[Rfam]
RNA: SAM riboswitch aptamer (S box leader)
RNA sequence: AUCUUAUCCAGAGUAGGUGGAGGGUAAAGGCCCAAUGAAACCCGGCAACCCCGUUGUAACGGAAGGUGCUAAUCUUAGCAAAGUAUUCUUUGAACGAUGAGUC
Numbered sequence: 001a002u003c004u005u006a007u008c009c010a011g012a013g014u015a016g017g018u019g020g021a022g023g024g025u026a027a028a029g030g031c032c033c034a035a036u037g038a039a040a041c042c043c044g045g046c047a048a049c050c051c052c053g054u055u056g057u058a059a060c061g062g063a064a065g066g067u068g069c070u071a072a073u074c075u076u077a078g079c080a081a082a083g084u085a086u087u088c089u090u091u092g093a094a095c096g097a098u099g100a101g102u103c
Stems, first nucleotide, its partner, number of pairs: 003101006013043001016042003022033003029076002044070004049066002051062004079092005